[Rfam]
RNA sequence: GAAGGUAGGUCCUUCGACAGGGAUUGAACAGGCAAACCUGUCAAACAACCUUAAUGCUGCUGUGAUUAAGAGUCGUGGUAGUGAGCGAUUAAGGAAAAGGCUGCACAAGCAGUCAUG
Number, nucleotide and partner (000 for none) at each position: 001g015002a014003a013004g012005g011006u000007a000008g000009g000010u000011c005012c004013u003014u002015c001016g042017a041018c040019a039020g038021g037022g000023a000024u035025u034026g033027a000028a000029c000030a000031g000032g000033c026034a025035a024036a000037c021038c020039u019040g018041u017042c016043a000044a000045a000046c117047a116048a000049c094050c093051u000052u091053a090054a089055u088056g082057c081058u000059g079060c078061u077062g000063u075064g074065a073066u072067u000068a000069a000070g000071a000072g066073u065074c064075g063076u000077g061078g060079u059080a000081g057082u056083g000084a000085g000086c000087g000088a055089u054090u053091a052092a000093g050094g049095a000096a000097a000098a000099g114100g113101c112102u111103g110104c109105a000106c000107a000108a000109g104110c103111a102112g101113u100114c099115a000116u047117g046